[Rfam]
RNA sequence: GUAUUUUUCAUGGUAUUAGAUUUAUGGUUAGGAGUGAAGAUUGGUUGUCGGGAGACAACCAUUCCUAUUUUAGU
Number, nucleotide and partner (000 for none) at each position: 001g000002u000003a000004u000005u000006u000007u000008u000009c000010a000011u000012g000013g000014u000015a000016u000017u000018a000019g000020a000021u000022u000023u000024a000025u000026g000027g000028u000029u000030a000031g000032g000033a000034g000035u000036g000037a000038a000039g000040a000041u000042u000043g060044g059045u058046u057047g056048u055049c054050g000051g000052g000053a000054g049055a048056c047057a046058a045059c044060c043061a000062u000063u000064c000065c000066u000067a000068u000069u000070u000071u000072a000073g000074u000
RNA: Bacteroidetes FopS (family of paralogous sRNAs)
Organism: Dysgonomonas sp. PF1-16